[Rfam]
RNA sequence: CUUUUAGAAGGGAAUGAAGUUCUCCCUUAGUGAUCAUACUAGAACCGCUUAUAAAGCUGAUGACUUCUGCGAAUAA
Numbered sequence: 001c002u003u004u005u006a007g008a009a010g011g012g013a014a015u016g017a018a019g020u021u022c023u024c025c026c027u028u029a030g031u032g033a034u035c036a037u038a039c040u041a042g043a044a045c046c047g048c049u050u051a052u053a054a055a056g057c058u059g060a061u062g063a064c065u066u067c068u069g070c071g072a073a074u075a076a
Stems, first nucleotide, its partner, number of pairs: 010025003016067006047057003
RNA: Fluoride riboswitch aptamer (crcB RNA motif)